[Rfam]
RNA sequence: GCCACAUGAUGUUCUCUAGACUGCAUUAGCACUCUGUGCAAAGAUGACCCAGUAUCUAUCACCCUUGACUGAUGGCU
Numbered sequence: 001g002c003c004a005c006a007u008g009a010u011g012u013u014c015u016c017u018a019g020a021c022u023g024c025a026u027u028a029g030c031a032c033u034c035u036g037u038g039c040a041a042a043g044a045u046g047a048c049c050c051a052g053u054a055u056c057u058a059u060c061a062c063c064c065u066u067g068a069c070u071g072a073u074g075g076c077u
Stems, first nucleotide, its partner, number of pairs: 001076004029039004
The record is a 77-nucleotide RNA sequence from Clarias magur, which matches "Small nucleolar RNA SNORD83" in Rfam. Pairs were carried over by alignment from the consensus structure, which was predicted with PFOLD. Gene Ontology terms of the family: nucleolus and RNA processing. The organism belongs to Clarias, within Eukaryota.